Rfam assigns this 154-nucleotide RNA sequence from Amborella trichopoda to the family "MIR8565 microRNA precursor family". A search with the family's covariance model found it, with a score of 145 bits. Pairs were carried over by alignment from the consensus structure, which was predicted with RNAalifold.
RNA sequence: CCUAUACCCAUGUGUGUAGGACUCCAAAAGAUCACCAUUAAAUAUGGUACAGUUCUCUAGAAAAGUUAUCACAUGGGUGUAGGAUUUGACUUUUCUAGAUAUCUGUGCCAUAUUUAAUGGUGAUUAUUUGAGGUCCUACACACAUGGGUGUGGG
Numbered sequence: 001c002c003u004a005u006a007c008c009c010a011u012g013u014g015u016g017u018a019g020g021a022c023u024c025c026a027a028a029a030g031a032u033c034a035c036c037a038u039u040a041a042a043u044a045u046g047g048u049a050c051a052g053u054u055c056u057c058u059a060g061a062a063a064a065g066u067u068a069u070c071a072c073a074u075g076g077g078u079g080u081a082g083g084a085u086u087u088g089a090c091u092u093u094u095c096u097a098g099a100u101a102u103c104u105g106u107g108c109c110a111u112a113u114u115u116a117a118u119g120g121u122g123a124u125u126a127u128u129u130g131a132g133g134u135c136c137u138a139c140a141c142a143c144a145u146g147g148g149u150g151u152g153g154g
Stems, first nucleotide, its partner, number of pairs: 002153012015140009025130004030125003034121019054101001056099013069082001071080003